[Rfam]
RNA sequence: UGCAUGAAAAGGCAAACCCGUUUGAAAGAACGGAGACGCAAAGCUACCGGUCUAAGGAGCAAUCUAUGACAGCGGGGCCGCCAAU
Numbered sequence: 001u002g003c004a005u006g007a008a009a010a011g012g013c014a015a016a017c018c019c020g021u022u023u024g025a026a027a028g029a030a031c032g033g034a035g036a037c038g039c040a041a042a043g044c045u046a047c048c049g050g051u052c053u054a055a056g057g058a059g060c061a062a063u064c065u066a067u068g069a070c071a072g073c074g075g076g077g078c079c080g081c082c083a084a085u
Base pairs, nucleotide, nucleotide: 012039013038018033019032020031021030022029043078044077045076047075048074049073050070051069052068057064058063
The family of this 85-nucleotide sequence from Methylovorus glucosotrophus is "c-di-GMP-I riboswitch aptamer". Pairs were carried over by alignment from the consensus structure, which is taken from published work. The organism belongs to Methylovorus glucosotrophus, within Bacteria. A search with the family's covariance model found it, with a score of 65 bits.